Annotation:
mir-449 microRNA precursor family: a 92-nucleotide sequence from Chelonia mydas.
RNA sequence: AGGAUGUGACAGUUUGGCAGUGCAUUGCUAGCUGGCUGUUGAGAACUUGAUAUAUGAACAGUUGCUAGCUGCACUCCACAUUGUUGCAUUCA
Numbered sequence: 001a002g003g004a005u006g007u008g009a010c011a012g013u014u015u016g017g018c019a020g021u022g023c024a025u026u027g028c029u030a031g032c033u034g035g036c037u038g039u040u041g042a043g044a045a046c047u048u049g050a051u052a053u054a055u056g057a058a059c060a061g062u063u064g065c066u067a068g069c070u071g072c073a074c075u076c077c078a079c080a081u082u083g084u085u086g087c088a089u090u091c092a
Stems, first nucleotide, its partner, number of pairs: 002091012015078003019075006027069006034062001043055001
The family has 41 seed sequences and 325 matches in Rfam 15.1.